Record summary:
The record is a 76-nucleotide sequence from Danio rerio, which matches "mir-9/mir-79 microRNA precursor family" in Rfam. Rfam links the family to the GO terms miRNA-mediated post-transcriptional gene silencing and RISC complex. A reference for the family is Lau et al. (2001), "An abundant class of tiny RNAs with probable regulatory roles in Caenorhabditis elegans", Science.

RNA sequence: UGGUUUCUCUCUUUGGUUAUCUAGCUGUAUGAGUUAUAACACUGUCAUAAAGCUAGAUAACCGAAAGUAGAAAUAA
Numbered sequence: 001u002g003g004u005u006u007c008u009c010u011c012u013u014u015g016g017u018u019a020u021c022u023a024g025c026u027g028u029a030u031g032a033g034u035u036a037u038a039a040c041a042c043u044g045u046c047a048u049a050a051a052g053c054u055a056g057a058u059a060a061c062c063g064a065a066a067g068u069a070g071a072a073a074u075a076a
Stems, first nucleotide, its partner, number of pairs: 001076001003074003007070002010067001012065015028049005